A member of the RNA family "mir-1302 microRNA precursor family" from Propithecus coquereli, 52 nucleotides long. The family's consensus secondary structure was predicted with WAR. NCBI's taxonomy places the organism under Eukaryota, Metazoa, Sarcopterygii, Mammalia, Propithecus.
[Rfam]
RNA sequence: UUUUUAGGGUAAGUAUGUCCCGUGUAAUAUUGGGGAUAUGCUUAUCCUAAUA
Number, nucleotide and partner (000 for none) at each position: 001u000002u000003u000004u000005u000006a048007g047008g046009g045010u044011a043012a042013g000014u040015a039016u038017g000018u036019c035020c034021c033022g031023u000024g000025u000026a000027a000028u000029a000030u000031u022032g000033g021034g020035g019036a018037u000038a016039u015040g014041c000042u012043u011044a010045u009046c008047c007048u006049a000050a000051u000052a000
On this family, see Morin et al., Genome Res 2008: "Application of massively parallel sequencing to microRNA profiling and discovery in human embryonic stem cells".